This 109-nucleotide RNA from Panicum virgatum belongs to the Rfam family "mir-395 microRNA precursor family". mir-395 was identified in both Arabidopsis thaliana and Oryza sativa computationally and was later experimentally verified. mir-395 is thought to target mRNAs coding for ATP sulphurylases. The mature sequence is excised from the 3' arm of the hairpin. On this family, see Jones-Rhoades and Bartel, Mol Cell 2004: "Computational Identification of Plant MicroRNAs and Their Targets, Including a Stress-Induced miRNA".
[Rfam]
RNA sequence: GUGUUACCAUGAGUUCCCUUCAAGCACUUCGCGUGAAUUGCCAUUCAUAUUACUCCCUUUAGGAGUUUUAGGUACAAUGUGAAGUGUUUGGGGGAACUCUUGGUGAUAC
Numbered sequence: 001g002u003g004u005u006a007c008c009a010u011g012a013g014u015u016c017c018c019u020u021c022a023a024g025c026a027c028u029u030c031g032c033g034u035g036a037a038u039u040g041c042c043a044u045u046c047a048u049a050u051u052a053c054u055c056c057c058u059u060u061a062g063g064a065g066u067u068u069u070a071g072g073u074a075c076a077a078u079g080u081g082a083a084g085u086g087u088u089u090g091g092g093g094g095a096a097c098u099c100u101u102g103g104u105g106a107u108a109c
Stems, first nucleotide, its partner, number of pairs: 005105005011099010022089013